RNA sequence: AGUUACAGUUGAUGCAAUUUUGGGGUUUCUUAGCGGCAUUUGCCUGUAAAUUAACUGCAAUGCCCUUGGAAAUCCCAAAUAUGUAUGACUGUUUUU
Dot-bracket structure: .......((.(.((((....(((((((((..((.(((((.(((.............))))))))))..)))))))))....)))..).).))....
The record is a 96-nucleotide sequence from Asbolus verrucosus, which matches "mir-2788 microRNA precursor family" in Rfam.
Its family is annotated with miRNA-mediated post-transcriptional gene silencing and RISC complex in the Gene Ontology.
It scores 71 bits against the family's covariance model.